This 58-nucleotide RNA sequence from Aloysia citrodora belongs to the Rfam family "Plastid-psbA-3 3UTR RNA". Its Rfam clan is "Plastid-psbA 3UTR RNA clan". The family's consensus secondary structure was predicted with LocARNA. Rfam's curators put it in the seed alignment. About the family: Plastid psbA-3 is a non-coding RNA (ncRNA) present in plastids. It was identified in inverted repeat sequences in the 3 prime untranslate region (3UTR) of photosystem II quinone-binding protein (psbA). By type it is a cis-regulatory element. The source organism's lineage runs through Eukaryota, Embryophyta, lamiids, Verbenaceae and Aloysia.
[Rfam]
RNA sequence: UAAGGAGCAAUAAACUCUUUCUUGUGAUAGAACAAGAGGGUUUAUUGCUCCUUUAUUU
Numbered sequence: 001u002a003a004g005g006a007g008c009a010a011u012a013a014a015c016u017c018u019u020u021c022u023u024g025u026g027a028u029a030g031a032a033c034a035a036g037a038g039g040g041u042u043u044a045u046u047g048c049u050c051c052u053u054u055a056u057u058u
Base pairs, nucleotide, nucleotide: 002053003052004051005050006049007048008047009046010045011044012043013042019038020037021036022035025034026033